Fluoride riboswitch aptamer (crcB RNA motif): a 61-nucleotide RNA from Enhydrobacter aerosaccus.

RNA sequence: GAACCCGAUGGGGAUGGGGUCCCCCGACAACCGCCGCGAGGCUGAUGACUCCUACCGUACA
Number, nucleotide and partner (000 for none) at each position: 001g000002a000003a000004c000005c000006c000007g000008a000009u000010g025011g024012g023013g022014a000015u000016g052017g051018g050019g049020u048021c047022c013023c012024c011025c010026g000027a000028c000029a000030a000031c000032c000033g042034c041035c040036g000037c000038g000039a000040g035041g034042c033043u000044g000045a000046u000047g021048a020049c019050u018051c017052c016053u000054a000055c000056c000057g000058u000059a000060c000061a000